[Rfam]
Nucleotides: 275
Base pairs, nucleotide, nucleotide: 006033007032008031038048039047088129089128090127091123092122097111098110099109100108135154136153137152138151141149142147159202160201161200162198163197210250211249212248213247214246215245216244219237220236221235222234223233224232260275263272
Number, partner (000 for none) and nucleotide at each position: 001000u002000g003000a004000c005000a006033c007032c008031c009000a010000a011000c012000a013000g014000u015000g016000a017000g018000u019000c020000u021000c022000c023000a024000g025000u026000a027000g028000a029000a030000a031008g032007g033006g034000g035000c036000c037000a038048g039047u040000g041000a042000a043000g044000a045000u046000c047039a048038c049000c050000a051000c052000a053000g054000u055000g056000u057000u058000u059000u060000u061000g062000g063000u064000c065000a066000a067000c068000u069000g070000a071000c072000g073000a074000a075000u076000u077000u078000u079000g080000u081000g082000u083000g084000g085000a086000a087000g088129a089128c090127g091123u092122c093000u094000u095000g096000a097111g098110c099109a100108g101000a102000a103000a104000c105000c106000u107000g108100c109099u110098g111097c112000c113000u114000c115000g116000a117000c118000u119000a120000g121000g122092g123091a124000u125000c126000c127090u128089g129088u130000u131000a132000a133000g134000u135154u136153u137152g138151u139000g140000g141149u142147g143000a144000u145000c146000a147142u148000a149141g150000g151138a152137c153136a154135g155000g156000c157000a158000u159202u160201g161200a162198g163197u164000a165000g166000c167000u168000g169000u170000g171000a172000a173000u174000u175000a176000u177000u178000u179000a180000u181000g182000g183000a184000a185000g186000g187000u188000u189000u190000g191000a192000a193000a194000a195000a196000g197163g198162c199000u200161u201160u202159a203000a204000a205000g206000g207000c208000g209000a210250g211249a212248a213247g214246g215245a216244u217000a218000a219237a220236g221235g222234u223233u224232a225000a226000a227000a228000c229000a230000c231000a232224u233223g234222a235221c236220u237219u238000a239000g240000u241000u242000g243000c244216a245215u246214u247213u248212u249211u250210u251000g252000a253000u254000g255000u256000u257000g258000u259000a260275a261000a262000a263272g264000a265000c266000a267000u268000u269000u270000a271000c272263c273000c274000a275260u

Source information:
The family of this 275-nucleotide RNA sequence from Mus musculus is "Mason-Pfizer monkey virus packaging signal". The family's consensus secondary structure was predicted with PFOLD. It is annotated as a cis-regulatory element. Its family is annotated with viral genome packaging in the Gene Ontology. This family represents a group of sequences that are related to the Mason-Pfizer monkey virus (MPMV) packaging signal.